[Rfam]
RNA: mir-128 microRNA precursor family
RNA sequence: GUGCAGCACAGCUGGGGGCCGUUGCACUGUCAGAGAGUGAGUAUCAAGUCUCACAGUGAACCCGUCUCUUUCUGUGCCGCUAA
Numbered sequence: 001g002u003g004c005a006g007c008a009c010a011g012c013u014g015g016g017g018g019c020c021g022u023u024g025c026a027c028u029g030u031c032a033g034a035g036a037g038u039g040a041g042u043a044u045c046a047a048g049u050c051u052c053a054c055a056g057u058g059a060a061c062c063c064g065u066c067u068c069u070u071u072c073u074g075u076g077c078c079g080c081u082a083a
Stems, first nucleotide, its partner, number of pairs: 006077005015068005021062001025058006033052003